[Rfam]
RNA sequence: GGGGAUAAACGCGCGCGUAAUAAGCGGACUGGACCCGGGUGCGAUUCCCGGCGGCUCCACCAAAUCUUCCCCCGGGUAUCGCCGGGCAAGUGCGGGGCCGAUCAGGAUCGACAGACGUGUAAAGGCGUAGCUUUCUCCCGGCCUGACCCACCGUUUCGGGUCUUUUGAUAGAUGCGAACGAUAACUUCGCUUCUGAAGUUCGGCUCGCCGCGUAA
Numbered sequence: 001g002g003g004g005a006u007a008a009a010c011g012c013g014c015g016c017g018u019a020a021u022a023a024g025c026g027g028a029c030u031g032g033a034c035c036c037g038g039g040u041g042c043g044a045u046u047c048c049c050g051g052c053g054g055c056u057c058c059a060c061c062a063a064a065u066c067u068u069c070c071c072c073c074g075g076g077u078a079u080c081g082c083c084g085g086g087c088a089a090g091u092g093c094g095g096g097g098c099c100g101a102u103c104a105g106g107a108u109c110g111a112c113a114g115a116c117g118u119g120u121a122a123a124g125g126c127g128u129a130g131c132u133u134u135c136u137c138c139c140g141g142c143c144u145g146a147c148c149c150a151c152c153g154u155u156u157c158g159g160g161u162c163u164u165u166u167g168a169u170a171g172a173u174g175c176g177a178a179c180g181a182u183a184a185c186u187u188c189g190c191u192u193c194u195g196a197a198g199u200u201c202g203g204c205u206c207g208c209c210g211c212g213u214a215a
Base pairs, nucleotide, nucleotide: 001138002137003136004135005134013128014127015126016125025117026116029114030113031112035051036050037049038048039047052100053099054098055097056096057095058094139153140152141151
Overview
permuted transfer-messenger RNA: a 215-nucleotide RNA sequence from Phenylobacterium soli. Bacterial tmRNA, also known as 10Sa RNA or SsrA, is named for its dual tRNA and mRNA-like properties. Its role is to liberate the mRNA from a stalled ribosome. The source organism's lineage runs through Bacteria, Alphaproteobacteria, Caulobacterales, Caulobacteraceae and Phenylobacterium. The base pairs follow the family's consensus structure, which is taken from published work.